[Rfam]
RNA: Brassica rapa small nucleolar RNA 775
Organism: Eutrema salsugineum
RNA sequence: UUAAUUAUGCCUUUACUCUGUUUUCUGAGUUGAGUUAUUUUUGCUUGUGUAUUUGAAAGUCAAUAGAAGAAAAAUGCCUCUUCUUUCAGCAGCAAGAUCCGUUCUUGUUAGCUUUGUUCUGGAGGCACAUAU
Numbered sequence: 001u002u003a004a005u006u007a008u009g010c011c012u013u014u015a016c017u018c019u020g021u022u023u024u025c026u027g028a029g030u031u032g033a034g035u036u037a038u039u040u041u042u043g044c045u046u047g048u049g050u051a052u053u054u055g056a057a058a059g060u061c062a063a064u065a066g067a068a069g070a071a072a073a074a075u076g077c078c079u080c081u082u083c084u085u086u087c088a089g090c091a092g093c094a095a096g097a098u099c100c101g102u103u104c105u106u107g108u109u110a111g112c113u114u115u116g117u118u119c120u121g122g123a124g125g126c127a128c129a130u131a132u
Stems, first nucleotide, its partner, number of pairs: 001056003006051004075127007088113003091109007